[Rfam]
RNA sequence: AAUAGAAAAAGGCAAACCAAUUGAAAAAUUGGGACGCAAAGCCACGGGUCUACGGUAGCAGUGCUACUAAGAUCGCCGGGCUACCUAA
Numbered sequence: 001a002a003u004a005g006a007a008a009a010a011g012g013c014a015a016a017c018c019a020a021u022u023g024a025a026a027a028a029u030u031g032g033g034a035c036g037c038a039a040a041g042c043c044a045c046g047g048g049u050c051u052a053c054g055g056u057a058g059c060a061g062u063g064c065u066a067c068u069a070a071g072a073u074c075g076c077c078g079g080g081c082u083a084c085c086u087a088a
Base pairs, nucleotide, nucleotide: 012037013036017032018031019030020029021028022027040082041081042080043079045078046077047076048073049072050071055067056066057065058064
RNA: c-di-GMP-I riboswitch aptamer
Organism: Halobacillus salinus